[Rfam]
RNA sequence: GGGUAAUGCCUCCUAACCCUUAUCAACGGAGGCACUCGGCCGCGCUGUGGGUUCAAAAACCUUAGGUGCCCGUCACCAAAGGUGCGGUGUGAGGAUAGGUUGAAUGCCUG
Numbered sequence: 001g002g003g004u005a006a007u008g009c010c011u012c013c014u015a016a017c018c019c020u021u022a023u024c025a026a027c028g029g030a031g032g033c034a035c036u037c038g039g040c041c042g043c044g045c046u047g048u049g050g051g052u053u054c055a056a057a058a059a060c061c062u063u064a065g066g067u068g069c070c071c072g073u074c075a076c077c078a079a080a081g082g083u084g085c086g087g088u089g090u091g092a093g094g095a096u097a098g099g100u101u102g103a104a105u106g107c108c109u110g
Base pairs, nucleotide, nucleotide: 001019002018003017004016007034008033009032010031011030012029013028035093036092037091038090039088040087041086042085043084044083045082046081049062050061051060052059053058065077066076067075068074096110097109098108099107100106
RNA: epsC RNA